[Rfam]
RNA sequence: CCUUUACUGUUGCUAAUGUGCAACUCUGUUAUGUAUAAUCUGGAAUUGCACUUUAGCAAUGGUGAUGG
Numbered sequence: 001c002c003u004u005u006a007c008u009g010u011u012g013c014u015a016a017u018g019u020g021c022a023a024c025u026c027u028g029u030u031a032u033g034u035a036u037a038a039u040c041u042g043g044a045a046u047u048g049c050a051c052u053u054u055a056g057c058a059a060u061g062g063u064g065a066u067g068g
Base pairs, nucleotide, nucleotide: 005064006063007062008061009060010059011058012057013056014055015054016053019050020049021048022047023046025044026043027042028041

This 68-nucleotide RNA sequence from Anolis carolinensis belongs to the Rfam family "mir-367 microRNA precursor family".
A reference for the family is Mineno et al. (2006), "The expression profile of microRNAs in mouse embryos", Nucleic Acids Res.
Gene Ontology terms of the family: miRNA-mediated post-transcriptional gene silencing and RISC complex.
Lineage of the source: Eukaryota > Opisthokonta > Chordata > Episquamata > Anolis.
It is one of the family's seed sequences.